This 85-nucleotide RNA from Paulinella micropora belongs to the Rfam family "mir-33 microRNA precursor family". It scores 51 bits against the family's covariance model. NCBI's taxonomy places the organism under Eukaryota, Sar, Rhizaria, Paulinellidae, Paulinella. For this family Rfam cites "Direct sequencing and expression analysis of a large number of miRNAs in Aedes aegypti and a multi-species survey of novel mosquito miRNAs" (Li et al., BMC Genomics, 2009).

[Rfam]
RNA sequence: GCAGGGUGCAUUGAAAUUUCAAUGCAUGUAUUGAAAUGACUUAUAUUAAUUUCAAUGCAUGCAUUGAAAUUUCAAUGCAUCAUGC
Dot-bracket structure: (((..(((((((((((..(.(((((((((((((((((...........))))))))))))))))).)..)))))))))).).)))